[Rfam]
RNA sequence: ACUCAACACUAACAAUUUAGAAUGAGCGAAUCUUCAUUACUAUAGCAUGCCCACCUUGUAGUGGGAUCCUUGAACAAUGAGUUAGCUCAAAACUUGUCAUAACGAGUUU
Numbered sequence: 001a002c003u004c005a006a007c008a009c010u011a012a013c014a015a016u017u018u019a020g021a022a023u024g025a026g027c028g029a030a031u032c033u034u035c036a037u038u039a040c041u042a043u044a045g046c047a048u049g050c051c052c053a054c055c056u057u058g059u060a061g062u063g064g065g066a067u068c069c070u071u072g073a074a075c076a077a078u079g080a081g082u083u084a085g086c087u088c089a090a091a092a093c094u095u096g097u098c099a100u101a102a103c104g105a106g107u108u109u
Stems, first nucleotide, its partner, number of pairs: 023089005034080005044070002050065004
RNA: 6S-Flavo RNA